Rfam assigns this 89-nucleotide sequence from Escherichia coli to the family "ArsR-gov region gene B". The family's consensus secondary structure was predicted with RNAfold. NCBI's taxonomy places the organism under Bacteria, Pseudomonadati, Enterobacterales, Escherichia, Escherichia coli. arsR-gov region gene B is transcribed opposite of dinQ (translates into a toxic single transmembrane peptide) with 30 complimentary nucleotides.
RNA sequence: UUAGGUGUAGAGUGACUUCCUCCGGUCAGAGCCACCAACUCAGAACCGGAACCGUAUUAAAACCCGACCUCACCAGUCGGGUUUUUUAC
Number, nucleotide and partner (000 for none) at each position: 001u000002u000003a000004g000005g000006u000007g000008u000009a000010g000011a000012g000013u000014g000015a000016c000017u000018u000019c000020c000021u050022c049023c048024g047025g046026u045027c000028a000029g041030a040031g039032c000033c000034a000035c000036c000037a000038a000039c031040u030041c029042a000043g000044a000045a026046c025047c024048g023049g022050a021051a000052c000053c000054g000055u000056a000057u000058u000059a085060a084061a083062a082063c081064c080065c079066g078067a077068c076069c000070u000071c000072a000073c000074c000075a000076g068077u067078c066079g065080g064081g063082u062083u061084u060085u059086u000087u000088a000089c000